[Rfam]
RNA sequence: GCACGGUCCAUUAUUACUUUUGGUACGCGCUAUGCCUCCUUCAAACUCGUACCGUGAGUAAUAAUGCAUUGUGA
Numbered sequence: 001g002c003a004c005g006g007u008c009c010a011u012u013a014u015u016a017c018u019u020u021u022g023g024u025a026c027g028c029g030c031u032a033u034g035c036c037u038c039c040u041u042c043a044a045a046c047u048c049g050u051a052c053c054g055u056g057a058g059u060a061a062u063a064a065u066g067c068a069u070u071g072u073g074a
Stems, first nucleotide, its partner, number of pairs: 009066010021054007029046001
RNA: mir-126 microRNA precursor family